[Rfam]
RNA sequence: GCGCGCGUCAUUGGGGAGUAGCUUCCCGUCGUAUCGCGACGGGGCCUGCGUCAACAGACUUGGCCCACAGGCCAUGGUGCAGGCAGCCCUCGGGCCUAGCAAGACCUUUGACUACACCACUUCGGACUGGCCGAGGAGGGUGUGGUCAAGGUGUGCGUUCGGCCAGGGAGU
Numbered sequence: 001g002c003g004c005g006c007g008u009c010a011u012u013g014g015g016g017a018g019u020a021g022c023u024u025c026c027c028g029u030c031g032u033a034u035c036g037c038g039a040c041g042g043g044g045c046c047u048g049c050g051u052c053a054a055c056a057g058a059c060u061u062g063g064c065c066c067a068c069a070g071g072c073c074a075u076g077g078u079g080c081a082g083g084c085a086g087c088c089c090u091c092g093g094g095c096c097u098a099g100c101a102a103g104a105c106c107u108u109u110g111a112c113u114a115c116a117c118c119a120c121u122u123c124g125g126a127c128u129g130g131c132c133g134a135g136g137a138g139g140g141u142g143u144g145g146u147c148a149a150g151g152u153g154u155g156c157g158u159u160c161g162g163c164c165a166g167g168g169a170g171u
Stems, first nucleotide, its partner, number of pairs: 026042003044084010061074005089170003
The family of this 171-nucleotide sequence from Oceanococcus atlanticus is "Manganese Mn2+ riboswitch aptamer (yybP-ykoY)".
Gene Ontology term of the family: manganese ion binding.
The base pairs follow the family's consensus structure.
On this family, see Argaman et al., Curr Biol 2001: "Novel small RNA-encoding genes in the intergenic regions of Escherichia coli".
This RNA was originally discovered in E. coli during a large scale screen and was named SraF. The family was later found to exist upstream of related families of protein genes in many bacteria, including the the yybP and ykoK genes in B. subtilis.
NCBI's taxonomy places the organism under Bacteria, Pseudomonadota, Gammaproteobacteria, Chromatiales, Oceanococcus.